[Rfam]
RNA sequence: CUCCCUACAUUCACAAAGAGUGUAGAGUGAUAGAUAAAAGUCUAUCCAAAACUCCUUUAAUUGCUGGGAGUCCCUAAAGCUACUCAAGCAGAUAACCAAAAUCUUUGAUUUUGUGUCAUUCGCUUAUCCUUUGAAUACUAAGCGACUGCAAGGAACUAAGCUUCCUUACUACAACGUAAAGAUGAAAAAAGCUUAAGCGUGAAAGUUGCGAAAGCAGAAAAAAUUGAGUAGAUGGUGCAUGGUUAAAUCCUAAACACUGAAAAAAAUGGGUGAUCAGCAGCGAAGCCUCGAAAAGAGGAACGUUCAACGACUAGAGAGAGAUCUCGUACCUUAAAGUUAAGGGAAACAGGGAGGAUCUUAAGUGAAAAUUAGUUUUAUUUUCUUUCUGAAACUAAUUAAGUUUAGUAAGUCUUAAGAUUAUGAUAUAGUCUGUGCUUAUGUGAAAGCAUAAG
Numbered sequence: 001c002u003c004c005c006u007a008c009a010u011u012c013a014c015a016a017a018g019a020g021u022g023u024a025g026a027g028u029g030a031u032a033g034a035u036a037a038a039a040g041u042c043u044a045u046c047c048a049a050a051a052c053u054c055c056u057u058u059a060a061u062u063g064c065u066g067g068g069a070g071u072c073c074c075u076a077a078a079g080c081u082a083c084u085c086a087a088g089c090a091g092a093u094a095a096c097c098a099a100a101a102u103c104u105u106u107g108a109u110u111u112u113g114u115g116u117c118a119u120u121c122g123c124u125u126a127u128c129c130u131u132u133g134a135a136u137a138c139u140a141a142g143c144g145a146c147u148g149c150a151a152g153g154a155a156c157u158a159a160g161c162u163u164c165c166u167u168a169c170u171a172c173a174a175c176g177u178a179a180a181g182a183u184g185a186a187a188a189a190a191g192c193u194u195a196a197g198c199g200u201g202a203a204a205g206u207u208g209c210g211a212a213a214g215c216a217g218a219a220a221a222a223a224u225u226g227a228g229u230a231g232a233u234g235g236u237g238c239a240u241g242g243u244u245a246a247a248u249c250c251u252a253a254a255c256a257c258u259g260a261a262a263a264a265a266a267u268g269g270g271u272g273a274u275c276a277g278c279a280g281c282g283a284a285g286c287c288u289c290g291a292a293a294a295g296a297g298g299a300a301c302g303u304u305c306a307a308c309g310a311c312u313a314g315a316g317a318g319a320g321a322u323c324u325c326g327u328a329c330c331u332u333a334a335a336g337u338u339a340a341g342g343g344a345a346a347c348a349g350g351g352a353g354g355a356u357c358u359u360a361a362g363u364g365a366a367a368a369u370u371a372g373u374u375u376u377a378u379u380u381u382c383u384u385u386c387u388g389a390a391a392c393u394a395a396u397u398a399a400g401u402u403u404a405g406u407a408a409g410u411c412u413u414a415a416g417a418u419u420a421u422g423a424u425a426u427a428g429u430c431u432g433u434g435c436u437u438a439u440g441u442g443a444a445a446g447c448a449u450a451a452g
Stems, first nucleotide, its partner, number of pairs: 005025008029035001052353004057348001062279006072270003280303002286297001288295001307431001309430005356417007437450005
The family of this 452-nucleotide RNA from Gottschalkia acidurici is "Group I catalytic intron". The literature on the family includes a 1990 paper in Annu Rev Biochem by Cech, "Self-splicing of group I introns". Rfam's curators write: Group I catalytic introns are large self-splicing ribozymes. They catalyse their own excision from mRNA, tRNA and rRNA precursors in a wide range of organisms. The core secondary structure consists of 9 paired regions (P1-P9). These fold to essentially two domains - the P4-P6 domain (formed from the stacking of P5, P4, P6 and P6a helices) and the P3-P9 domain (formed from the P8, P3, P7 and P9 helices). The secondary structure mark-up for this family represents only this conserved core. Group I catalytic introns often have long ORFs inserted in loop regions. The window size for this search is chosen to minimise search time and catch the small examples. A larger window size will find more matches.